[Rfam]
RNA sequence: AAUGAGUGGUUUGAUUGCUUUUCAUUAUAGGUCAUAUGGGGCUUUUUUCAUACUCAAAAAGGCUCCAUAAUCUCCGAGGUGGAUUUACCCACUACAGAAAUUAUAGAGCC
Numbered sequence: 001a002a003u004g005a006g007u008g009g010u011u012u013g014a015u016u017g018c019u020u021u022u023c024a025u026u027a028u029a030g031g032u033c034a035u036a037u038g039g040g041g042c043u044u045u046u047u048u049c050a051u052a053c054u055c056a057a058a059a060a061g062g063c064u065c066c067a068u069a070a071u072c073u074c075c076g077a078g079g080u081g082g083a084u085u086u087a088c089c090c091a092c093u094a095c096a097g098a099a100a101u102u103a104u105a106g107a108g109c110c
Stems, first nucleotide, its partner, number of pairs: 001026006009018002029044005061110005067104005073098002078093005
A member of the RNA family "Streptococcus RNA 266" from Streptococcus ovuberis, 110 nucleotides long. The pairing is the family consensus, mapped onto this sequence. The match comes from Rfam's covariance-model search (111 bits). For this family Rfam cites "Identification of 88 regulatory small RNAs in the TIGR4 strain of the human pathogen Streptococcus pneumoniae" (Acebo et al., RNA, 2012). Rfam classes the family as a small RNA.